Source information: Rfam assigns this 94-nucleotide RNA sequence from Syntrophotalea carbinolica to the family "Selenocysteine transfer RNA". For this family Rfam cites "Eukaryotic selenocysteine tRNA has the 9/4 secondary structure" (Mizutani and Goto, FEBS Lett, 2000). The sequence is in the family's curated seed alignment. Pairs were carried over by alignment from the consensus structure, which is taken from published work.
RNA sequence: GGAAGCGCGUCGGUCGCUGGUGGGCCGCCCGGUCUUCAAAACCGGUGUGGGGGGUGAGAAACUUCCCAGGUGGGUUCGAUUCCCAUGCGCUUCC
Numbered sequence: 001g002g003a004a005g006c007g008c009g010u011c012g013g014u015c016g017c018u019g020g021u022g023g024g025c026c027g028c029c030c031g032g033u034c035u036u037c038a039a040a041a042c043c044g045g046u047g048u049g050g051g052g053g054g055u056g057a058g059a060a061a062c063u064u065c066c067c068a069g070g071u072g073g074g075u076u077c078g079a080u081u082c083c084c085a086u087g088c089g090c091u092u093c094c
Stems, first nucleotide, its partner, number of pairs: 001094009011027005017022001029045005048068005071085004
Description: NCBI's taxonomy places the organism under Bacteria, Pseudomonadati, Desulfuromonadia, Desulfuromonadales, Syntrophotalea carbinolica.